[Rfam]
RNA sequence: CUCUUAUCUAGAGCGGCGGAGGGAAUAGGCCCGAUGAAGCCCGGCAACCUGCAAUCAUGAAAGGUGCCAAUUCCUACAGAUCGAUGGUGAUCUGGAAGAUAAGGG
Numbered sequence: 001c002u003c004u005u006a007u008c009u010a011g012a013g014c015g016g017c018g019g020a021g022g023g024a025a026u027a028g029g030c031c032c033g034a035u036g037a038a039g040c041c042c043g044g045c046a047a048c049c050u051g052c053a054a055u056c057a058u059g060a061a062a063g064g065u066g067c068c069a070a071u072u073c074c075u076a077c078a079g080a081u082c083g084a085u086g087g088u089g090a091u092c093u094g095g096a097a098g099a100u101a102a103g104g105g
Stems, first nucleotide, its partner, number of pairs: 001105008013042001015041003021032003026076004043068004048064002050061001052059002072097001077094006
Rfam assigns this 105-nucleotide RNA sequence from Rossellomorea marisflavi to the family "SAM riboswitch aptamer (S box leader)". The organism belongs to Rossellomorea, within Bacteria. Rfam links the family to the GO term regulation of gene expression. It scores 90 bits against the family's covariance model.